[Rfam]
RNA: FMN riboswitch aptamer (RFN element)
Organism: Candidatus Colimorpha enterica
RNA sequence: AAAAUUCUUUGGGGCGCGGUGGAAGUCCGCACCGGCGGUGACAGUCCGCGAACACUUGAGAGAGUGCCGAAUGAGUGGAAAUCUCAUACCGACGGUAAUUGCAGAAAAAUCUGCAUAAGUCCGGAUGGAAAAAGAAAGCG
Numbered sequence: 001a002a003a004a005u006u007c008u009u010u011g012g013g014g015c016g017c018g019g020u021g022g023a024a025g026u027c028c029g030c031a032c033c034g035g036c037g038g039u040g041a042c043a044g045u046c047c048g049c050g051a052a053c054a055c056u057u058g059a060g061a062g063a064g065u066g067c068c069g070a071a072u073g074a075g076u077g078g079a080a081a082u083c084u085c086a087u088a089c090c091g092a093c094g095g096u097a098a099u100u101g102c103a104g105a106a107a108a109a110u111c112u113g114c115a116u117a118a119g120u121c122c123g124g125a126u127g128g129a130a131a132a133a134g135a136a137a138g139c140g
Base pairs, nucleotide, nucleotide: 005136006135007134008133009132010131017029018028019027033091034090035049036048037047038046044089045088053066054065071087072086073085074084075083093123094122095121